[Rfam]
RNA: MIR2619 microRNA precursor family
RNA sequence: AAACAACCCCCUAUGUUUUGAUUCUUUGGUAGUUUUGGACCCCCAAGGCAAAAAAAUAAAAUAAAAAUUGACACGUGGCAGCUCACUUAGGGUGCCACUUCAGCGUUGACCGAGUCAACAAUGGAUUGGGGGUCCAAAACUGCCAAAGAAUCAAAACAUAGGGGGCUGUUU
Numbered sequence: 001a002a003a004c005a006a007c008c009c010c011c012u013a014u015g016u017u018u019u020g021a022u023u024c025u026u027u028g029g030u031a032g033u034u035u036u037g038g039a040c041c042c043c044c045a046a047g048g049c050a051a052a053a054a055a056a057u058a059a060a061a062u063a064a065a066a067a068u069u070g071a072c073a074c075g076u077g078g079c080a081g082c083u084c085a086c087u088u089a090g091g092g093u094g095c096c097a098c099u100u101c102a103g104c105g106u107u108g109a110c111c112g113a114g115u116c117a118a119c120a121a122u123g124g125a126u127u128g129g130g131g132g133u134c135c136a137a138a139a140c141u142g143c144c145a146a147a148g149a150a151u152c153a154a155a156a157c158a159u160a161g162g163g164g165g166c167u168g169u170u171u
Stems, first nucleotide, its partner, number of pairs: 001171002004168002007165002012160034073100001076097005082091001